[Rfam]
This 57-nucleotide RNA sequence belongs to the Rfam family "pemK RNA".
RNA sequence: AUAAUGAUACUUCCGGAGAAGGCUGUCCGGUCUGAAAAGAUGGUGAAAAUCCAAUGU
Numbered sequence: 001a002u003a004a005u006g007a008u009a010c011u012u013c014c015g016g017a018g019a020a021g022g023c024u025g026u027c028c029g030g031u032c033u034g035a036a037a038a039g040a041u042g043g044u045g046a047a048a049a050u051c052c053a054a055u056g057u
Stems, first nucleotide, its partner, number of pairs: 012054001013030004031040003041053003